[Rfam]
RNA sequence: UAGGGAGGACGGGGUUCGGAACCCCUCCCUGAACCCAGGGUAACUCUUAAGGUGGAGAGGAA
Numbered sequence: 001u002a003g004g005g006a007g008g009a010c011g012g013g014g015u016u017c018g019g020a021a022c023c024c025c026u027c028c029c030u031g032a033a034c035c036c037a038g039g040g041u042a043a044c045u046c047u048u049a050a051g052g053u054g055g056a057g058a059g060g061a062a
Base pairs, nucleotide, nucleotide: 008041010039012036013035014034015033016031018029019028022060023059025057026056027055
Rfam assigns this 62-nucleotide RNA sequence from Suricata suricatta to the family "Gag/pol translational readthrough site". NCBI's taxonomy places the organism under Eukaryota, Craniata, Teleostomi, Amniota, Suricata. A search with the family's covariance model found it, with a score of 74 bits. On this family, see ten Dam et al., Virus Genes 1990: "RNA pseudoknots: translational frameshifting and readthrough on viral RNAs". Rfam 15.1 lists 3,368 matches to the family in 94 species. Its family is annotated with viral translational readthrough in the Gene Ontology. The base pairs follow the family's consensus structure, which is taken from published work. Rfam classes the family as a cis-regulatory element.